[Rfam]
RNA sequence: GGGCGCGUAGCUCAGUUGGGAGAGUGCUGCAUUCGCAUUGCAGAGGUCGAGGGUUCGACUCCCUUCGUGUCCA
Numbered sequence: 001g002g003g004c005g006c007g008u009a010g011c012u013c014a015g016u017u018g019g020g021a022g023a024g025u026g027c028u029g030c031a032u033u034c035g036c037a038u039u040g041c042a043g044a045g046g047u048c049g050a051g052g053g054u055u056c057g058a059c060u061c062c063c064u065u066c067g068u069g070u071c072c073a
Base pairs, nucleotide, nucleotide: 001072002071003070004069005068006067007066010025011024012023013022027043028042029041030040031039049065050064051063052062053061

tRNA: a 73-nucleotide RNA sequence from Clostridium sp. CAG:217.
Rfam classes the family as a transfer RNA.
About the family: Transfer RNA (tRNA) molecules are approximately 80 nucleotides in length.
It scores 62 bits against the family's covariance model.